[Rfam]
RNA: MIR2912 microRNA precursor family
RNA sequence: UCUAGAACCCGAGAUAUGGACUGAACACUAAACAGUGUCUAAGCUGCUGGACAAAUUUAGACUUCUAUUUUGAUGCUAAGAUUUGGACUCCAAAACAACAUAAUUGAGUCUUGAAAUCACAUGAAUGUUUUAGGCCUAUGUCUUAGCUUUCUAGC
Dot-bracket structure: .(((((((..(((((((((.(((((.((......(((....(..(...((((.((((..(..(....(...(.(...........).)...)....).)..))))..))))..)..)..)))....)))))))..))))))))).)..)))))).